[Rfam]
RNA sequence: AACAGAGUAGACAAUUAGCGUAAAGUGUUCACGAAUGGGAUGUUGUUGUGAAACGAACGAUUAAGAUAUCGUACGAUUGAUUGCCGCUUCCGCUGUG
Numbered sequence: 001a002a003c004a005g006a007g008u009a010g011a012c013a014a015u016u017a018g019c020g021u022a023a024a025g026u027g028u029u030c031a032c033g034a035a036u037g038g039g040a041u042g043u044u045g046u047u048g049u050g051a052a053a054c055g056a057a058c059g060a061u062u063a064a065g066a067u068a069u070c071g072u073a074c075g076a077u078u079g080a081u082u083g084c085c086g087c088u089u090c091c092g093c094u095g096u097g
Stems, first nucleotide, its partner, number of pairs: 002096004010085001012083007019075003025054002028052007038091003042087001058071004
A member of the RNA family "THF (Tetrahydrofolate) riboswitch aptamer" from Ignavigranum ruoffiae, 97 nucleotides long. Rfam links the family to the GO term tetrahydrofolate metabolic process.